[Rfam]
RNA: L31-Actinobacteria ribosomal protein leader
Organism: Amycolatopsis balhimycina
RNA sequence: CCGGCGCCGGUUCACCCCGUGGGAACGACUGGGGACCCGGAGCC
Numbered sequence: 001c002c003g004g005c006g007c008c009g010g011u012u013c014a015c016c017c018c019g020u021g022g023g024a025a026c027g028a029c030u031g032g033g034g035a036c037c038c039g040g041a042g043c044c
Base pairs, nucleotide, nucleotide: 003044004043005042007040008039009038010037015034016033017032018031019029020028022026